[Rfam]
RNA: Group II catalytic intron D1-D4-6
Organism: Desulfosporosinus sp. Sb-LF
RNA sequence: GAAAUCCCGUCCGGUAAGACGCAAGCCACGUCACCGAUAACGAGUCUUGGAUGAUUAGGGGCAAUCCUAGCUAUUAAGAGUAGACAGUCAGAUAGCAGGCCUGAAAGUGAUUGAGCCACUAAACGAGUAAACCGGGAAGGACGGAUUCGAAACACUGGAAGACAAAUCCUACACACGUAUAAGCGAGUGGACUAGGGCUUCCCCAGGGUCAAAUAGCC
Numbered sequence: 001g002a003a004a005u006c007c008c009g010u011c012c013g014g015u016a017a018g019a020c021g022c023a024a025g026c027c028a029c030g031u032c033a034c035c036g037a038u039a040a041c042g043a044g045u046c047u048u049g050g051a052u053g054a055u056u057a058g059g060g061g062c063a064a065u066c067c068u069a070g071c072u073a074u075u076a077a078g079a080g081u082a083g084a085c086a087g088u089c090a091g092a093u094a095g096c097a098g099g100c101c102u103g104a105a106a107g108u109g110a111u112u113g114a115g116c117c118a119c120u121a122a123a124c125g126a127g128u129a130a131a132c133c134g135g136g137a138a139g140g141a142c143g144g145a146u147u148c149g150a151a152a153c154a155c156u157g158g159a160a161g162a163c164a165a166a167u168c169c170u171a172c173a174c175a176c177g178u179a180u181a182a183g184c185g186a187g188u189g190g191a192c193u194a195g196g197g198c199u200u201c202c203c204c205a206g207g208g209u210c211a212a213a214u215a216g217c218c
Base pairs, nucleotide, nucleotide: 012036013035014034015033019031020030021029025184026183038090040088041087044085045084046083047082048080050075051074052073053072055070056069057068058067059066060065112212113210115209116208117207134203135202136201137200138199139198142157143156144155167197168196169195170194171193174189175188176187